[Rfam]
RNA sequence: UGGCUGUAAUGGUCGCAAUCUAAGGAAGAUAUCAACAUCCCGAUUUCUUUCUACCAUGGAGUUCGCAAGAACACUGCCAACAGUGCCCAGUUCGAACAUGGCGGUGGAUGUCCACUCGUGUAGGUAACUCACGAUGCUGCGAUGUCCUUAAGCAAUGAAGAAUAUUUCAUGAGGGAGGUUUCACUCUGCAGUGAGCUCUUCACCGUGGUGUGGCGGUAUUGGAUUACACUUGUUGUGUGGUUUGGUAGAGGAGGUUGGGUUGAGCGUCAACCUUGGUU
Dot-bracket structure: ((((.......))))....((((((.....(....(...(..(.((.(((((((...((.((((....)))).))..((((((((.((((((((.((((.((((.(.((((.(..(((((.((....))))))).)..)))...).)(...)...((((((....(((((....(((......)))....))))).)))))))))).))))..))).)))))....))).))))).........))))))).)).).....)...))...))))))..